[Rfam]
Description: The family of this 84-nucleotide RNA from a Steroidobacteraceae bacterium is "c-di-GMP-I riboswitch aptamer". The organism belongs to Steroidobacteraceae, within Bacteria. From the family's description: GEMM was predicted in a large-scale screen for bacterial structured RNA regulatory elements. Genes associated with GEMM are involved in a diverse array of functions, including chemotaxis regulation, signal transduction, secretion and chitin.
RNA sequence: CGAACGUAAGGGCAAACUCACUGAAAGGUGAGGACGCAAAGCCACCGGUCUACGGGAUUAUCUCAAGACAGCGGGGUUGCCGGA
Numbered sequence: 001c002g003a004a005c006g007u008a009a010g011g012g013c014a015a016a017c018u019c020a021c022u023g024a025a026a027g028g029u030g031a032g033g034a035c036g037c038a039a040a041g042c043c044a045c046c047g048g049u050c051u052a053c054g055g056g057a058u059u060a061u062c063u064c065a066a067g068a069c070a071g072c073g074g075g076g077u078u079g080c081c082g083g084a
Base pairs, nucleotide, nucleotide: 012037013036017032018031019030020029021028022027040078041077042076043075045074046073047072048069049068050067055063056062057061